[Rfam]
RNA: Bacterial RNase P class A
RNA sequence: UUGAGGAUACAUGGCCGCUCGGAUUUUCUGUGAUGAUACGGAACUUCCGUGAGGUAAAGUCCGGGCUCCACCGGAAAAGAUGCCGGAUAACGUCCGGGUAGAAAAGGGUAGCUGCUGACAUUCAGCAUAGCCCCUUGACUAACAGAAAGUGCUACAGAAAAUUACCGCCCUGUUACAGGGUAAGGGUGAAAAGGCAGGGUAAGAGCCUACCGCGGAACUGGUAACAGUUCCGGCAUAAGCAAACCUCAUCUGGAGCAAGAUCAUGCAGCAGUUUGACAUUCCGGUCUUAUACUGCGGGUAGAUUGCUGGAGACAUCUGGUAACAGAUGCCGUGGAUAGAUGACCAUACAUCGAAAGAUGUGCCAGAACCCGGCUUACCGUAUCCUUUUUUUU
Number, nucleotide and partner (000 for none) at each position: 001u000002u000003g386004a385005g384006g383007a382008u381009a380010c379011a000012u345013g344014g343015c000016c341017g000018c051019u000020c049021g048022g047023a046024u000025u000026u043027u042028c041029u040030g039031u038032g000033a000034u000035g000036a000037u000038a031039c030040g029041g028042a027043a026044c000045u000046u023047c022048c021049g020050u000051g018052a000053g000054g000055u000056a000057a375058a374059g373060u000061c372062c371063g370064g369065g368066c255067u254068c253069c252070a000071c000072c000073g282074g281075a280076a279077a000078a251079g250080a249081u248082g247083c097084c096085g095086g094087a093088u000089a000090a000091c000092g000093u087094c086095c085096g084097g083098g143099u141100a140101g139102a000103a000104a000105a000106g000107g000108g000109u000110a000111g000112c000113u000114g000115c000116u000117g000118a000119c000120a000121u000122u000123c000124a000125g000126c000127a000128u000129a000130g000131c000132c000133c000134c000135u000136u000137g000138a000139c101140u100141a099142a000143c098144a246145g245146a000147a000148a000149g244150u243151g240152c239153u238154a000155c000156a000157g000158a000159a000160a000161a000162u000163u000164a000165c185166c184167g181168c180169c179170c178171u177172g176173u000174u000175a000176c172177a171178g170179g169180g168181u167182a000183a000184g166185g165186g000187u000188g000189a000190a000191a000192a000193g211194g210195c000196a208197g207198g206199g000200u000201a000202a000203g000204a000205g000206c198207c197208u196209a000210c194211c193212g234213c232214g231215g230216a229217a228218c227219u226220g225221g000222u000223a000224a000225c220226a219227g218228u217229u216230c215231c214232g213233g000234c212235a000236u000237a000238a153239g152240c151241a000242a000243a150244c149245c145246u144247c082248a081249u080250c079251u078252g069253g068254a067255g066256c000257a000258a000259g304260a303261u302262c301263a000264u000265g000266c000267a000268g295269c294270a293271g292272u291273u000274u000275g286276a285277c284278a000279u076280u075281c074282c073283g000284g277285u276286c275287u000288u000289a000290u000291a272292c271293u270294g269295c268296g000297g000298g000299u000300a000301g262302a261303u260304u259305g000306c000307u000308g000309g000310a000311g330312a000313c328314a327315u326316c325317u324318g323319g000320u000321a000322a000323c318324a317325g316326a315327u314328g313329c000330c311331g000332u000333g000334g000335a000336u000337a000338g000339a000340u000341g016342a000343c014344c013345a012346u000347a000348c000349a000350u000351c000352g000353a000354a000355a000356g000357a000358u000359g000360u000361g000362c000363c000364a000365g000366a000367a000368c065369c064370c063371g062372g061373c059374u058375u057376a000377c000378c000379g010380u009381a008382u007383c006384c005385u004386u003387u000388u000389u000390u000391u000392u000